This 80-nucleotide RNA from Blomia tropicalis belongs to the Rfam family "mir-190 microRNA precursor family". It scores 67 bits against the family's covariance model. On this family, see Bar et al., Stem Cells 2008: "MicroRNA discovery and profiling in human embryonic stem cells by deep sequencing of small RNA libraries". Gene Ontology terms of the family: RISC complex and miRNA-mediated post-transcriptional gene silencing.
[Rfam]
RNA sequence: AAUUCUUGGUGAUAUGUUUGAUAUUCUUGGUUGUGAAAAGAAUUCUAUCAACCAAGAAUCAGACAUAUAUUCCAAGCAUU
Numbered sequence: 001a002a003u004u005c006u007u008g009g010u011g012a013u014a015u016g017u018u019u020g021a022u023a024u025u026c027u028u029g030g031u032u033g034u035g036a037a038a039a040g041a042a043u044u045c046u047a048u049c050a051a052c053c054a055a056g057a058a059u060c061a062g063a064c065a066u067a068u069a070u071u072c073c074a075a076g077c078a079u080u
Stems, first nucleotide, its partner, number of pairs: 005076005012068011024056002029053005

Pairs were carried over by alignment from the consensus structure, which was predicted with RNAalifold.